Description
A member of the RNA family "GlmZ RNA activator of glmS mRNA" from Xenorhabdus szentirmaii, 207 nucleotides long. Rfam classes the family as a small RNA.
RNA sequence: GUAGAUACUCAUCCUACUCCUUAUGACAGCAUCGACUUCAUAAACCUCGGGAUGAUGUAGAGCUAAUUUCCAGUGCCUAUGGUCCACGUUAUAGAUGAGUCAGCGUAUUUGCUUUUCAUCACAAACAGGACACAACGUUGAGUGAGGCACUAUCCGUCUGUAGACCUGAUUGGAUUUAUACACCUAUCUUUUGAUAGGUGUUUUUUU
Numbered sequence: 001g002u003a004g005a006u007a008c009u010c011a012u013c014c015u016a017c018u019c020c021u022u023a024u025g026a027c028a029g030c031a032u033c034g035a036c037u038u039c040a041u042a043a044a045c046c047u048c049g050g051g052a053u054g055a056u057g058u059a060g061a062g063c064u065a066a067u068u069u070c071c072a073g074u075g076c077c078u079a080u081g082g083u084c085c086a087c088g089u090u091a092u093a094g095a096u097g098a099g100u101c102a103g104c105g106u107a108u109u110u111g112c113u114u115u116u117c118a119u120c121a122c123a124a125a126c127a128g129g130a131c132a133c134a135a136c137g138u139u140g141a142g143u144g145a146g147g148c149a150c151u152a153u154c155c156g157u158c159u160g161u162a163g164a165c166c167u168g169a170u171u172g173g174a175u176u177u178a179u180a181c182a183c184c185u186a187u188c189u190u191u192u193g194a195u196a197g198g199u200g201u202u203u204u205u206u207u
Base pairs, nucleotide, nucleotide: 001063002062006059007058008057009055010054011053012052014051015050017049029033072151073150074149075148076147077146078145082131083130084129085128094120095119096118097117098116099115156165157164158163180201181200182199183198184197185196186195187194188193
Lineage of the source: Bacteria > Pseudomonadota > Gammaproteobacteria > Xenorhabdus > Xenorhabdus szentirmaii.
From the family's description: This RNA was discovered in E. coli during a large scale screen. The sraJ gene was expressed in early logarithmic phase, but its level decreased with cell growth.